[Rfam]
RNA: c-di-AMP riboswitch aptamer (ydaO/yuaA leader)
Organism: Proteiniborus ethanoligenes
RNA sequence: AACACAUAUUUGCUGAAUCCUAGUUUUUCUAGGUACGGAGGAACCAACUAAGGGGUUAAUCUAUGGAUGUCAUAGUAGGGAGCCUUCUGUCCCGAACCCGUCAGCUAACUUCGGAAGCAAAAAAGAAGGGGUGU
Numbered sequence: 001a002a003c004a005c006a007u008a009u010u011u012g013c014u015g016a017a018u019c020c021u022a023g024u025u026u027u028u029c030u031a032g033g034u035a036c037g038g039a040g041g042a043a044c045c046a047a048c049u050a051a052g053g054g055g056u057u058a059a060u061c062u063a064u065g066g067a068u069g070u071c072a073u074a075g076u077a078g079g080g081a082g083c084c085u086u087c088u089g090u091c092c093c094g095a096a097c098c099c100g101u102c103a104g105c106u107a108a109c110u111u112c113g114g115a116a117g118c119a120a121a122a123a124a125g126a127a128g129g130g131g132u133g134u
Base pairs, nucleotide, nucleotide: 011119012118013117014116019033020032021031022030023029036113037112038111039110040109045052053099054098055097061075062074063073064072078093079092080091081090